RNA sequence: UGCCUGUGAUGUUCAACAUUUGUCCGUACCAUCUGAGAUUUUUAUCUUUGAUGUAUUCUUUCAAAGUUUAGUUUCUGAGGCAU
Numbered sequence: 001u002g003c004c005u006g007u008g009a010u011g012u013u014c015a016a017c018a019u020u021u022g023u024c025c026g027u028a029c030c031a032u033c034u035g036a037g038a039u040u041u042u043u044a045u046c047u048u049u050g051a052u053g054u055a056u057u058c059u060u061u062c063a064a065a066g067u068u069u070a071g072u073u074u075c076u077g078a079g080g081c082a083u
Base pairs, nucleotide, nucleotide: 001082002081003080004079
small nucleolar RNA snoR117: an 83-nucleotide RNA from Durio zibethinus. Lineage of the source: Eukaryota > Streptophytina > Tracheophyta > Helicteroideae > Durio. Rfam classes the family as a C/D-box small nucleolar RNA. For this family Rfam cites "Mining small RNA sequencing data: a new approach to identify small nucleolar RNAs in Arabidopsis" (Chen and Wu, Nucleic Acids Res, 2009).